RNA sequence: AACGACCGGCCGGACACUCGCGUGCCACGCAGAGACCCGGCCCACAAGUGGAGGCUCCGCUUCCCACCUAGCCGCUCUCCGGAGCGGCGGGUCACCGGUCAGGCGGCCGCAGUCCCCGAGACUACGGCAGGCCCGAGAUGCGCCCCGCGAUCACCGCGGAGGUGCUCCGGUAGUAAUGGAGCCCCUUCCUGUGAUCGGUUGGGGCAUUUUUU
Numbered sequence: 001a002a003c004g005a006c007c008g009g010c011c012g013g014a015c016a017c018u019c020g021c022g023u024g025c026c027a028c029g030c031a032g033a034g035a036c037c038c039g040g041c042c043c044a045c046a047a048g049u050g051g052a053g054g055c056u057c058c059g060c061u062u063c064c065c066a067c068c069u070a071g072c073c074g075c076u077c078u079c080c081g082g083a084g085c086g087g088c089g090g091g092u093c094a095c096c097g098g099u100c101a102g103g104c105g106g107c108c109g110c111a112g113u114c115c116c117c118g119a120g121a122c123u124a125c126g127g128c129a130g131g132c133c134c135g136a137g138a139u140g141c142g143c144c145c146c147g148c149g150a151u152c153a154c155c156g157c158g159g160a161g162g163u164g165c166u167c168c169g170g171u172a173g174u175a176a177u178g179g180a181g182c183c184c185c186u187u188c189c190u191g192u193g194a195u196c197g198g199u200u201g202g203g204g205c206a207u208u209u210u211u212u
Stems, first nucleotide, its partner, number of pairs: 004100006012038002039093005046069001048067004052062002071088007102133003105128001107127003111123001142205006148197003155193003158188005164182005
Streptomyces RNA 1601: a 212-nucleotide RNA from Streptomyces sp. BA2. The literature on the family includes a 2011 paper in RNA Biol by Vockenhuber et al., "Deep sequencing-based identification of small non-coding RNAs in Streptomyces coelicolor". The organism belongs to Streptomyces, within Bacteria. About the family: Identified by deep sequencing of transcriptome at the end of exponential growth phase. Appears longer on northern blot than sequencing transcript. Streptomyces specific. The base pairs follow the family's consensus structure. Rfam classes the family as a small RNA.